Rfam assigns this 116-nucleotide RNA from Salmo salar to the family "Potassium channel RNA editing signal". The match comes from Rfam's covariance-model search (84 bits). Taxonomically the source falls in Salmo (Eukaryota, Metazoa, Bilateria, Chordata).
RNA sequence: UUUGCAGAUAUGGAGACAUGGUUCCAGACUCCAUAGCGGGCAAGAUAUUUGGCUCCAUCUGCUCCCUCAGUGGUGUGCUGGUGAUUGCUCUACCUGUGCCUGUCAUAGUCUCCAAC
Numbered sequence: 001u002u003u004g005c006a007g008a009u010a011u012g013g014a015g016a017c018a019u020g021g022u023u024c025c026a027g028a029c030u031c032c033a034u035a036g037c038g039g040g041c042a043a044g045a046u047a048u049u050u051g052g053c054u055c056c057a058u059c060u061g062c063u064c065c066c067u068c069a070g071u072g073g074u075g076u077g078c079u080g081g082u083g084a085u086u087g088c089u090c091u092a093c094c095u096g097u098g099c100c101u102g103u104c105a106u107a108g109u110c111u112c113c114a115a116c
Base pairs, nucleotide, nucleotide: 002115004113007112010109011108013106015104016103017102018101020099023096039079040078041077042076051065052064

Pairs were carried over by alignment from the consensus structure, which is taken from published work.
Its family is annotated with adenosine to inosine editing in the Gene Ontology.
Rfam classes the family as a cis-regulatory element.
A reference for the family is Bhalla et al. (2004), "Control of human potassium channel inactivation by editing of a small mRNA hairpin", Nat Struct Mol Biol.